[Rfam]
RNA: c-di-AMP riboswitch aptamer (ydaO/yuaA leader)
Organism: Paenibacillus baekrokdamisoli
RNA sequence: UUGCAUAAAAAGCCGAAUUUCAAAGUGAAAACGGGGGAACCAUAUUGUUGUCGAGAAGCGAUCGAUUUUGUCGAGUCGUGAAUACCGUCAGCACGGGGUGAAUUUCUCAAGUUAGCGAACUUGCAUUCUUGCGAAUAGGGCCGCCUGUCCGGGCCCGAAUCCGUCAGCUAACCUCGUAGGCUUCCCUGGAACAGGAC
Numbered sequence: 001u002u003g004c005a006u007a008a009a010a011a012g013c014c015g016a017a018u019u020u021c022a023a024a025g026u027g028a029a030a031a032c033g034g035g036g037g038a039a040c041c042a043u044a045u046u047g048u049u050g051u052c053g054a055g056a057a058g059c060g061a062u063c064g065a066u067u068u069u070g071u072c073g074a075g076u077c078g079u080g081a082a083u084a085c086c087g088u089c090a091g092c093a094c095g096g097g098g099u100g101a102a103u104u105u106c107u108c109a110a111g112u113u114a115g116c117g118a119a120c121u122u123g124c125a126u127u128c129u130u131g132c133g134a135a136u137a138g139g140g141c142c143g144c145c146u147g148u149c150c151g152g153g154c155c156c157g158a159a160u161c162c163g164u165c166a167g168c169u170a171a172c173c174u175c176g177u178a179g180g181c182u183u184c185c186c187u188g189g190a191a192c193a194g195g196a197c
Stems, first nucleotide, its partner, number of pairs: 011182004018030003031177006041095001096162003104135003138156004